Shown here is a 125-nucleotide RNA from Lupinus albus, a member of the family "U11 spliceosomal RNA". By type it is a spliceosomal small nuclear RNA. The family's consensus secondary structure is taken from published work. Its family is annotated with U11 snRNP, mRNA 5'-splice site recognition and pre-mRNA 5'-splice site binding in the Gene Ontology. NCBI's taxonomy places the organism under Eukaryota, Viridiplantae, fabids, Genisteae, Lupinus.
RNA sequence: AAAAAGGGUCAGUUGGCUAAAUAUGCCACGCUCAUCCUUGUGGUGAGUGCUGUAUGGCCAUCUAGACAUAUGGCUGACAUAAUUUCUGGAACCUAAAGGGUUGGCUCGCUUUGGCCGACCCUGCA
Numbered sequence: 001a002a003a004a005a006g007g008g009u010c011a012g013u014u015g016g017c018u019a020a021a022u023a024u025g026c027c028a029c030g031c032u033c034a035u036c037c038u039u040g041u042g043g044u045g046a047g048u049g050c051u052g053u054a055u056g057g058c059c060a061u062c063u064a065g066a067c068a069u070a071u072g073g074c075u076g077a078c079a080u081a082a083u084u085u086c087u088g089g090a091a092c093c094u095a096a097a098g099g100g101u102u103g104g105c106u107c108g109c110u111u112u113g114g115c116c117g118a119c120c121c122u123g124c125a
Stems, first nucleotide, its partner, number of pairs: 008078005014028004029049008050073007097122008106114003